[Rfam]
RNA sequence: CGCUUAUAGUUAGACUUAGCUACCCAGUUCGGUAGUGCCUCGUGUACUAUCUAUACUAUGGUAGUUAGGCUAGCAUUAGUUUAGACGGCCGGAUAAAGGCUACGGGAAUAUAGCUCCUUUCGGGGAGUAUUAUAGCCCGCGGUAUAAUACGGCCUAUCUAGACUAAGGAACGCGCUUCGGCUCGGAUACUAGCAUAAUAGCUAUAAGCGGCCCGUCUUAAAACACGG
Numbered sequence: 001c002g003c004u005u006a007u008a009g010u011u012a013g014a015c016u017u018a019g020c021u022a023c024c025c026a027g028u029u030c031g032g033u034a035g036u037g038c039c040u041c042g043u044g045u046a047c048u049a050u051c052u053a054u055a056c057u058a059u060g061g062u063a064g065u066u067a068g069g070c071u072a073g074c075a076u077u078a079g080u081u082u083a084g085a086c087g088g089c090c091g092g093a094u095a096a097a098g099g100c101u102a103c104g105g106g107a108a109u110a111u112a113g114c115u116c117c118u119u120u121c122g123g124g125g126a127g128u129a130u131u132a133u134a135g136c137c138c139g140c141g142g143u144a145u146a147a148u149a150c151g152g153c154c155u156a157u158c159u160a161g162a163c164u165a166a167g168g169a170a171c172g173c174g175c176u177u178c179g180g181c182u183c184g185g186a187u188a189c190u191a192g193c194a195u196a197a198u199a200g201c202u203a204u205a206a207g208c209g210g211c212c213c214g215u216c217u218u219a220a221a222a223c224a225c226g227g
Base pairs, nucleotide, nucleotide: 001209002208003207004206005205006204007203008202009201010200011199012198017067018066019065020064021063022062023061024060071191072190073189075187076186077185212227213226214225215224
Dot-bracket structure: ((((((((((((....((((((((...................................))))))))...(((.(((...........................................................................................................))).)))......))))))))))))..((((........))))
Shown here is a 227-nucleotide part of an RNA from Pseudovirgaria hyperparasitica, a member of the family "Eukaryotic large subunit ribosomal RNA". The family's consensus secondary structure is taken from published work. The match comes from Rfam's covariance-model search (2813 bits).